[Rfam]
A member of the RNA family "Small nucleolar RNA snR60/Z15/Z230/Z193/J17" from Crocodylus porosus, 87 nucleotides long. Its Rfam clan is "SNORD77 clan".

RNA sequence: GAGGCUCAAUAUGAUGAUAACAUAGUUCAGCAGAUGGCCUGUGAUGAGCAUGCUAUACUGUCUUUCGCUCCUAUCUGAUGCAGCCUC
Numbered sequence: 001g002a003g004g005c006u007c008a009a010u011a012u013g014a015u016g017a018u019a020a021c022a023u024a025g026u027u028c029a030g031c032a033g034a035u036g037g038c039c040u041g042u043g044a045u046g047a048g049c050a051u052g053c054u055a056u057a058c059u060g061u062c063u064u065u066c067g068c069u070c071c072u073a074u075c076u077g078a079u080g081c082a083g084c085c086u087c
Stems, first nucleotide, its partner, number of pairs: 004084003007080002